[Rfam]
RNA sequence: UCGUUAUUUGGUCUCAACGAUCAAUUAAUAGUUUCUCCUCUAUUUCUCCUUUGUAGACUUGGCACACAUUCUAACGGAUGUGUGCAUUUUU
Number, nucleotide and partner (000 for none) at each position: 001u000002c000003g029004u028005u027006a026007u000008u024009u023010g022011g021012u000013c000014u000015c000016a000017a000018c000019g000020a000021u011022c010023a009024a008025u000026u006027a005028a004029u003030a000031g000032u000033u000034u000035c000036u000037c000038c000039u057040c056041u055042a054043u053044u000045u000046c000047u000048c000049c000050u000051u000052u000053g043054u042055a041056g040057a039058c000059u000060u000061g000062g085063c084064a083065c082066a081067c080068a079069u078070u077071c076072u000073a000074a000075c000076g071077g070078a069079u068080g067081u066082g065083u064084g063085c062086a000087u000088u000089u000090u000091u000